[Rfam]
RNA sequence: UCGCAAGCCUUCCAGCAUGACUCGGUUUGUCUCAUGGCCUUGAUCAUUCCUGUAGAGCUUGCAAGAGCAGAUCUGUGAUGGUUUGAGGCUUCUUCCUGGUCCAUCUUCGGGGAGAAGUUAUAGAAAUCUCAGACAAGC
Numbered sequence: 001u002c003g004c005a006a007g008c009c010u011u012c013c014a015g016c017a018u019g020a021c022u023c024g025g026u027u028u029g030u031c032u033c034a035u036g037g038c039c040u041u042g043a044u045c046a047u048u049c050c051u052g053u054a055g056a057g058c059u060u061g062c063a064a065g066a067g068c069a070g071a072u073c074u075g076u077g078a079u080g081g082u083u084u085g086a087g088g089c090u091u092c093u094u095c096c097u098g099g100u101c102c103a104u105c106u107u108c109g110g111g112g113a114g115a116a117g118u119u120a121u122a123g124a125a126a127u128c129u130c131a132g133a134c135a136a137g138c
Base pairs, nucleotide, nucleotide: 003062004061005060006059007058008057018046019045020044024039025038026037027036074131075130077128078127089117090116091115092114093113094112096110097109098108
Dot-bracket structure: ..((((((.........(((...((((........))))....)))..........))))))...........((.((..........((((((.(((.........))).)))))).........)).)).......
Description: This 138-nucleotide RNA sequence from Salvator merianae belongs to the Rfam family "Small nucleolar RNA SNORA9". Pairs were carried over by alignment from the consensus structure, which was predicted with PFOLD. Lineage of the source: Eukaryota > Eumetazoa > Euteleostomi > Amniota > Salvator. It is annotated as an H/ACA-box small nucleolar RNA. Gene Ontology terms of the family: nucleolus and RNA processing. Clan: SNORA9 clan. The match comes from Rfam's covariance-model search (103 bits).